[Rfam]
RNA sequence: AGAUGUGAGGGCUAUCUGGCUGUGACAUCCUAUCACCCCAUUGAUUGCUAAAGCUGAUCUGGCUGGCAAGGUGGGUGUCUCCUUCCUUCCCCACCAUUCCAUGUGCAUCCUCCCAAAGCUGCUUAGUGAAAGAGGAUGGCUUUUUCCCUGAUAGAGACUUCCCAUUCAUUGCUCAAGGGUAUAUGGUAGCUGCACUCCCUUGCUAGAACAAGCUCAGAGUCCAUGUGUAGGAGAACAUAGGGUAGUCAAGCUUCCAGGACUGCAGAUGCAUCCAAGUGAGGUACUGCAUGGGGCAGUCUGCCAUUGUUU
Numbered sequence: 001a002g003a004u005g006u007g008a009g010g011g012c013u014a015u016c017u018g019g020c021u022g023u024g025a026c027a028u029c030c031u032a033u034c035a036c037c038c039c040a041u042u043g044a045u046u047g048c049u050a051a052a053g054c055u056g057a058u059c060u061g062g063c064u065g066g067c068a069a070g071g072u073g074g075g076u077g078u079c080u081c082c083u084u085c086c087u088u089c090c091c092c093a094c095c096a097u098u099c100c101a102u103g104u105g106c107a108u109c110c111u112c113c114c115a116a117a118g119c120u121g122c123u124u125a126g127u128g129a130a131a132g133a134g135g136a137u138g139g140c141u142u143u144u145u146c147c148c149u150g151a152u153a154g155a156g157a158c159u160u161c162c163c164a165u166u167c168a169u170u171g172c173u174c175a176a177g178g179g180u181a182u183a184u185g186g187u188a189g190c191u192g193c194a195c196u197c198c199c200u201u202g203c204u205a206g207a208a209c210a211a212g213c214u215c216a217g218a219g220u221c222c223a224u225g226u227g228u229a230g231g232a233g234a235a236c237a238u239a240g241g242g243u244a245g246u247c248a249a250g251c252u253u254c255c256a257g258g259a260c261u262g263c264a265g266a267u268g269c270a271u272c273c274a275a276g277u278g279a280g281g282u283a284c285u286g287c288a289u290g291g292g293g294c295a296g297u298c299u300g301c302c303a304u305u306g307u308u309u
Base pairs, nucleotide, nucleotide: 002099003098005094006093007092009090010089011088014084018082019081024079025078026077027076028075029074030073032072033071034070036066037065038062039061040060043059044058045057046056047054048053107160110156111155112154113126115124116123118122127151129149134147135146136145189251190250191249195245196244198242199241200240201239202238210226212224274309275308276307278304280302281301282300283297284296285295286294287293
Dot-bracket structure: .((.(((.(((..(...((....(((((((.(((.(((((..((((((....)).)))))))..))...)))))))))).)).)...))).)))...)).......(..((((.((.(...))).)(.(....(((........))).).)..)))...)............................(((...((.(((((.......(.(...........).)...........))))).))...)))......................(((.(.((((((((.....)))))..))).)..)))

Shown here is a 309-nucleotide RNA from Pavo cristatus, a member of the family "7SK RNA". Rfam describes the family as follows. 7SK was discovered as an abundant small nuclear RNA in the mid-70s but a possible function has only recently been suggested. Two independent studies have found that 7SK RNA binds the CDK9/cyclin T complex (known as elongation factor P-TEFb). P-TEFb activates transcription by phosphorylating the C-terminal domain of RNA polymerase II. This process is negatively regulated by the 7SK RNP. The secondary structure of 7SK RNA shown here was proposed by Wasserman and Steitz on the basis of chemical modification and enzymatic cleavage experiments. This family contains a number of annotated pseudogenes and 7SK derived repeats. The threshold is artificially high to minimise the pseudogene count. The family is grouped with related families in Rfam's "7SK clan". NCBI's taxonomy places the organism under Eukaryota, Sauropsida, Saurischia, Coelurosauria, Pavo.